[Rfam]
RNA sequence: GGAUAGCACUUUUUGCUAUUUUCGGUAAAUUACGCAAUAAUAUGUAAGAUAAUUUUUUCACGUGUAAUUGUGUUAUUGACCGAAAAUAGCAAAACAGUAUUAUCC
Numbered sequence: 001g002g003a004u005a006g007c008a009c010u011u012u013u014u015g016c017u018a019u020u021u022u023c024g025g026u027a028a029a030u031u032a033c034g035c036a037a038u039a040a041u042a043u044g045u046a047a048g049a050u051a052a053u054u055u056u057u058u059c060a061c062g063u064g065u066a067a068u069u070g071u072g073u074u075a076u077u078g079a080c081c082g083a084a085a086a087u088a089g090c091a092a093a094a095c096a097g098u099a100u101u102a103u104c105c
Base pairs, nucleotide, nucleotide: 002104003103004102005101011094012093013092014091015090016089017088018087019086021084022083023082024081025080026079028077029076030075032073033072034071035070036069037068038067040065041064042063043062044061045060047058048057049056
RNA: MIR6274 microRNA precursor family
Organism: Prunus yedoensis